The record is a 135-nucleotide RNA sequence from Tupaia belangeri, which matches "Small nucleolar RNA SNORA48" in Rfam.
A search with the family's covariance model found it, with a score of 149 bits.
The organism belongs to Tupaia belangeri, within Eukaryota.
Its Rfam clan is "SNORA48 clan".
Rfam describes the family as follows. The snoRNA ACA 48 has been identified to guide pseudouridylation of the residue U3797 in the 28S rRNA subunit.
It is annotated as an H/ACA-box small nucleolar RNA.

RNA sequence: UGUCCCUGGCCUGGGCAGAGUGGCAUCUGGCUGGUGGUGCCCAUCUCAUAUCAGUCAGGGACAAACCAACCGCUUGUUCAUCCCAGAUUGGCUUUUGGUCAGUGCCUUUGCCUGGUUCAUGCCUUGGACACGUAG
Numbered sequence: 001u002g003u004c005c006c007u008g009g010c011c012u013g014g015g016c017a018g019a020g021u022g023g024c025a026u027c028u029g030g031c032u033g034g035u036g037g038u039g040c041c042c043a044u045c046u047c048a049u050a051u052c053a054g055u056c057a058g059g060g061a062c063a064a065a066c067c068a069a070c071c072g073c074u075u076g077u078u079c080a081u082c083c084c085a086g087a088u089u090g091g092c093u094u095u096u097g098g099u100c101a102g103u104g105c106c107u108u109u110g111c112c113u114g115g116u117u118c119a120u121g122c123c124u125u126g127g128a129c130a131c132g133u134a135g
Stems, first nucleotide, its partner, number of pairs: 001063008011054004018047003022041006075130006090123003096119003100115001102113001104111002